Guanidine-I riboswitch aptamer: a 132-nucleotide RNA from Paraburkholderia ultramafica. Pairs were carried over by alignment from the consensus structure. Lineage of the source: Bacteria > Pseudomonadati > Betaproteobacteria > Burkholderiales > Paraburkholderia.

Nucleotides: 132
Base pairs, nucleotide, nucleotide: 007063008062009061010060011059012058015053016052020050021049022047023044024043025042026041027040028039065105066104067103068102069101070100071099072098107127109130113125114124115123
Number, partner (000 for none) and nucleotide at each position: 001000c002000u003000u004000c005000a006000g007063g008062a009061u010060c011059g012058c013000u014000a015053g016052g017000g018000u019000u020050c021049c022047g023044g024043u025042c026041g027040c028039c029000u030000u031000g032000c033000u034000u035000c036000a037000u038000g039028g040027g041026c042025g043024a044023u045000g046000c047022c048000u049021g050020g051000u052016c053015c054000g055000a056000g057000a058012g059011c060010g061009g062008u063007c064000c065105g066104g067103u068102c069101u070100u071099g072098c073000c074000c075000c076000c077000a078000a079000u080000c081000u082000u083000g084000c085000u086000u087000g088000c089000a090000a091000g092000g093000c094000g095000u096000c097000g098072g099071c100070g101069a102068g103067g104066c105065u106000c107127c108000a109130c110000g111000g112000a113125g114124g115123g116000a117000u118000a119000a120000a121000a122000g123115c124114c125113c126000g127107g128000g129000a130109g131000g132000a